This 199-nucleotide RNA sequence from Setaria italica belongs to the Rfam family "MIR1435 microRNA precursor family".
It scores 95 bits against the family's covariance model.
Pairs were carried over by alignment from the consensus structure, which was predicted with RNAalifold.
RNA sequence: UAGCUUUGUUCUAAGUCAAACCUAUCCAACUUUGACCAAGUUUAUAGAAAAAAUAUAUUAACAUCUACAAUAUAGGUAAAUGCACAGCCAAUAUAUAUUGCAUGGUGUAUCCAUUGAAAGUAGUUUGAUGUUGUAGACAUUAGUGAAUUUUUCAUAAACUUGGUCAAAGCUAGAGAAGUUUGACUUUGGACCAACCUAG
Numbered sequence: 001u002a003g004c005u006u007u008g009u010u011c012u013a014a015g016u017c018a019a020a021c022c023u024a025u026c027c028a029a030c031u032u033u034g035a036c037c038a039a040g041u042u043u044a045u046a047g048a049a050a051a052a053a054u055a056u057a058u059u060a061a062c063a064u065c066u067a068c069a070a071u072a073u074a075g076g077u078a079a080a081u082g083c084a085c086a087g088c089c090a091a092u093a094u095a096u097a098u099u100g101c102a103u104g105g106u107g108u109a110u111c112c113a114u115u116g117a118a119a120g121u122a123g124u125u126u127g128a129u130g131u132u133g134u135a136g137a138c139a140u141u142a143g144u145g146a147a148u149u150u151u152u153c154a155u156a157a158a159c160u161u162g163g164u165c166a167a168a169g170c171u172a173g174a175g176a177a178g179u180u181u182g183a184c185u186u187u188g189g190a191c192c193a194a195c196c197u198a199g
Stems, first nucleotide, its partner, number of pairs: 005194002008191002011188001013186009023176001025174002031168005045154001047153006056145003060141002064137006073127005